[Rfam]
RNA sequence: UAUAAAUUAAUAAUUUUCUCUCAUAUAAUCGCAGGGAUAUGGCCUGCAAGUUUCUACCGAGCCCCAUAAAGGUUUCGACUAUGAGCAGUGAUAUGUAUUGG
Numbered sequence: 001u002a003u004a005a006a007u008u009a010a011u012a013a014u015u016u017u018c019u020c021u022c023a024u025a026u027a028a029u030c031g032c033a034g035g036g037a038u039a040u041g042g043c044c045u046g047c048a049a050g051u052u053u054c055u056a057c058c059g060a061g062c063c064c065c066a067u068a069a070a071g072g073u074u075u076c077g078a079c080u081a082u083g084a085g086c087a088g089u090g091a092u093a094u095g096u097a098u099u100g101g
Base pairs, nucleotide, nucleotide: 020085021084022083023082024081025080029049031047032046033045034044035043058077059076060075061074062072063071
A member of the RNA family "Purine riboswitch aptamer" from Paenibacillus sp. J45TS6, 101 nucleotides long. The source organism's lineage runs through Bacteria, Bacilli, Caryophanales, Paenibacillaceae and Paenibacillus.